mir-3473 microRNA precursor family: a 94-nucleotide RNA sequence from Jaculus jaculus. The family has 5 seed sequences and 1,094 matches in Rfam 15.1. The source organism's lineage runs through Eukaryota, Craniata, Glires, Dipodoidea and Jaculus. Its family is annotated with cellular response to mechanical stimulus, miRNA-mediated post-transcriptional gene silencing and RISC complex in the Gene Ontology.
RNA sequence: ACUGCUGAGCCAUCUCUCCAGCCCAAAAUGUUUUUAAAAUGGAGUUUUUGACAUUAAAAAAAGAAUUCAGGGGCUGGAGAGAUGGCUCAGCAGA
Numbered sequence: 001a002c003u004g005c006u007g008a009g010c011c012a013u014c015u016c017u018c019c020a021g022c023c024c025a026a027a028a029u030g031u032u033u034u035u036a037a038a039a040u041g042g043a044g045u046u047u048u049u050g051a052c053a054u055u056a057a058a059a060a061a062a063g064a065a066u067u068c069a070g071g072g073g074c075u076g077g078a079g080a081g082a083u084g085g086c087u088c089a090g091c092a093g094a
Stems, first nucleotide, its partner, number of pairs: 002093023